[Rfam]
RNA sequence: CCUCCCAUGCCUCUCAUUGAUGCACACUUGGGAGGU
Numbered sequence: 001c002c003u004c005c006c007a008u009g010c011c012u013c014u015c016a017u018u019g020a021u022g023c024a025c026a027c028u029u030g031g032g033a034g035g036u
Stems, first nucleotide, its partner, number of pairs: 001035006008024003
abiF RNA: a 36-nucleotide sequence from Cyclobacterium marinum. Actinobacteria, Bacteroidetes, Clostridia, Proteobacteria, one Clostridia phage. The base pairs follow the family's consensus structure, which is taken from published work. The family has 126 seed sequences and 282 matches in Rfam 15.1. NCBI's taxonomy places the organism under Bacteria, Cytophagia, Cytophagales, Cyclobacterium, Cyclobacterium marinum.